The record is a 67-nucleotide sequence from Bombyx mori, which matches "mir-2774 microRNA precursor family" in Rfam. Its family is annotated with RISC complex and miRNA-mediated post-transcriptional gene silencing in the Gene Ontology.
RNA sequence: ACAACAUUCGAACCGUCAGUCUACCGAAUAAUAUCACUCUUUUGGUAGAAGAUCCUGCCGUUGUUGU
Numbered sequence: 001a002c003a004a005c006a007u008u009c010g011a012a013c014c015g016u017c018a019g020u021c022u023a024c025c026g027a028a029u030a031a032u033a034u035c036a037c038u039c040u041u042u043u044g045g046u047a048g049a050a051g052a053u054c055c056u057g058c059c060g061u062u063g064u065u066g067u
Stems, first nucleotide, its partner, number of pairs: 004064003010058001012056001015053003020049009
Dot-bracket structure: ...(((...(.(..(((..(((((((((............))))))))).)))..).)...)))...